Shown here is a 45-nucleotide RNA sequence from Sulfitobacter undariae, a member of the family "Guanidine-II riboswitch aptamer (mini-ykkC)".
RNA sequence: CCAGCGGGACGACCCGCGCUUUUUGUAUUUCUCGGGACGACCCGA
Numbered sequence: 001c002c003a004g005c006g007g008g009a010c011g012a013c014c015c016g017c018g019c020u021u022u023u024u025g026u027a028u029u030u031c032u033c034g035g036g037a038c039g040a041c042c043c044g045a
Stems, first nucleotide, its partner, number of pairs: 001018001005016004032045005
Gene Ontology term of the family: regulation of gene expression. Simpler in structure and has fewer highly conserved nucleotide positions than the ykkC-yxkD leader. Despite this each of its two stem-loop structures directly bind free guanidine.